[Rfam]
RNA sequence: AUAUUAAACUCUAAAUUACACACACAUAUCGGCACAUGGUGCGGGGUGCUUGGAUUGCUUAAAUGCAAUGCGGGUCGCAACAUGGGAUAUGUGGAGGCAUAAC
Numbered sequence: 001a002u003a004u005u006a007a008a009c010u011c012u013a014a015a016u017u018a019c020a021c022a023c024a025c026a027u028a029u030c031g032g033c034a035c036a037u038g039g040u041g042c043g044g045g046g047u048g049c050u051u052g053g054a055u056u057g058c059u060u061a062a063a064u065g066c067a068a069u070g071c072g073g074g075u076c077g078c079a080a081c082a083u084g085g086g087a088u089a090u091g092u093g094g095a096g097g098c099a100u101a102a103c
Stems, first nucleotide, its partner, number of pairs: 023093008035084004040079004048075005
RNA: t44 RNA